Description: The family of this 116-nucleotide RNA sequence from Lactobacillus crispatus is "Ribosomal protein L20 leader". Pairs were carried over by alignment from the consensus structure, which was predicted with CMfinder. Rfam describes the family as follows. This family is a putative r-protein leader autoregulatory structure found in B. subtilis and other low-GC Gram-positive bacteria. The family's RNA type in Rfam is cis-regulatory leader.
[Rfam]
RNA sequence: GAGAACAAGAAGAAGCACCCGCUUCUCGCCUAAGUUAAGUCAACCUCUGGGCUAAUCGAUAAUUUCUGUUGAUUAAAGGCGGGUAUGUUUCUUAUAACCCGCCUUUUUCUUGUCCU
Numbered sequence: 001g002a003g004a005a006c007a008a009g010a011a012g013a014a015g016c017a018c019c020c021g022c023u024u025c026u027c028g029c030c031u032a033a034g035u036u037a038a039g040u041c042a043a044c045c046u047c048u049g050g051g052c053u054a055a056u057c058g059a060u061a062a063u064u065u066c067u068g069u070u071g072a073u074u075a076a077a078g079g080c081g082g083g084u085a086u087g088u089u090u091c092u093u094a095u096a097a098c099c100c101g102c103c104u105u106u107u108u109c110u111u112g113u114c115c116u
Stems, first nucleotide, its partner, number of pairs: 011026006028052003033046002035043002078103007085095003